About this RNA
Rfam assigns this 92-nucleotide sequence from Nyssa sinensis to the family "Small nucleolar RNA U54". Its Rfam clan is "U54 clan". A search with the family's covariance model found it, with a score of 46 bits. U54 is a C/D box small nucleolar RNA, which acts as a methylation guide for 18S ribosomal RNA in plants. The family's consensus secondary structure was predicted with PFOLD. The organism belongs to Nyssa, within Eukaryota. The literature on the family includes a 2003 paper in Nucleic Acids Res by Chen et al., "The high diversity of snoRNAs in plants: identification and comparative study of 120 snoRNA genes from Oryza sativa".
Nucleotides: 092
Stems, first nucleotide, its partner, number of pairs: 001092005
Number, partner (000 for none) and nucleotide at each position: 001092g002091g003090c004089u005088c006000u007000g008000u009000g010000a011000u012000u013000a014000u015000c016000u017000g018000c019000c020000u021000g022000a023000u024000a025000c026000a027000c028000a029000g030000g031000c032000a033000a034000u035000a036000u037000a038000c039000g040000c041000u042000a043000u044000u045000c046000c047000g048000a049000u050000c051000g052000a053000g054000a055000a056000c057000a058000u059000g060000a061000g062000c063000g064000g065000a066000c067000a068000g069000a070000u071000u072000c073000a074000u075000a076000a077000g078000a079000a080000g081000a082000a083000u084000a085000u086000g087000a088005g089004a090003g091002c092001u